RNA: U4 spliceosomal RNA
Organism: Rattus norvegicus
RNA sequence: CUCUUGGCAGUAUCAUCGUAGCCAAUGAGGUUUAUCCGAGGCACGAUUAUUGCUAAUUGAAAACUUUCCCCAAUAGAAUACUGAGGUGGAGGAAAGUCUCUACCUGGAGUGUCCAAGUAGUUUG
Numbered sequence: 001c002u003c004u005u006g007g008c009a010g011u012a013u014c015a016u017c018g019u020a021g022c023c024a025a026u027g028a029g030g031u032u033u034a035u036c037c038g039a040g041g042c043a044c045g046a047u048u049a050u051u052g053c054u055a056a057u058u059g060a061a062a063a064c065u066u067u068c069c070c071c072a073a074u075a076g077a078a079u080a081c082u083g084a085g086g087u088g089g090a091g092g093a094a095a096g097u098c099u100c101u102a103c104c105u106g107g108a109g110u111g112u113c114c115a116a117g118u119a120g121u122u123u124g
Base pairs, nucleotide, nucleotide: 015047016046017045018044019043021042022041023040029037030036080110081109082108084105085104086103087102088101089100090099091098092097113124115122116121